RNA sequence: UUGAUACAAGGAUGAUGAUUCAAUUAGAUGUGUGAAAAGAGAAAUCUUUUUUGAACACAAUUAUUGAGGCAAACUGUCUGACUUGCAUUUA
Numbered sequence: 001u002u003g004a005u006a007c008a009a010g011g012a013u014g015a016u017g018a019u020u021c022a023a024u025u026a027g028a029u030g031u032g033u034g035a036a037a038a039g040a041g042a043a044a045u046c047u048u049u050u051u052u053g054a055a056c057a058c059a060a061u062u063a064u065u066g067a068g069g070c071a072a073a074c075u076g077u078c079u080g081a082c083u084u085g086c087a088u089u090u091a
Base pairs, nucleotide, nucleotide: 001091003089004088005087007085008084009083010082
Rfam assigns this 91-nucleotide sequence from Lathyrus oleraceus to the family "Small nucleolar RNA Z266". The family's RNA type in Rfam is C/D-box small nucleolar RNA. Pairs were carried over by alignment from the consensus structure, which was predicted with PFOLD.